[Rfam]
RNA: ZMP/ZTP riboswitch aptamer (pfl RNA motif)
Organism: Affinundibacterium nitidum
RNA sequence: UUUGUCUCACGCAACUGGCGAAAAUGCAGCGUCUUUUUAUCCAAAAGCACCUGCAGAAGAUGGAGUUCCAUCGUGAAGCGUGAGAUUUGCAGAGUCGAUUCUUGAUUCUGGCCGUACGCCUGGGUAUCUCGA
Numbered sequence: 001u002u003u004g005u006c007u008c009a010c011g012c013a014a015c016u017g018g019c020g021a022a023a024a025u026g027c028a029g030c031g032u033c034u035u036u037u038u039a040u041c042c043a044a045a046a047g048c049a050c051c052u053g054c055a056g057a058a059g060a061u062g063g064a065g066u067u068c069c070a071u072c073g074u075g076a077a078g079c080g081u082g083a084g085a086u087u088u089g090c091a092g093a094g095u096c097g098a099u100u101c102u103u104g105a106u107u108c109u110g111g112c113c114g115u116a117c118g119c120c121u122g123g124g125u126a127u128c129u130c131g132a
Stems, first nucleotide, its partner, number of pairs: 004086009015075001017120004060071004111125003
Dot-bracket structure: ...(((((((((..(.[[[[.......................................((((....))))...)..)))))))))........................(((...]]]]..))).......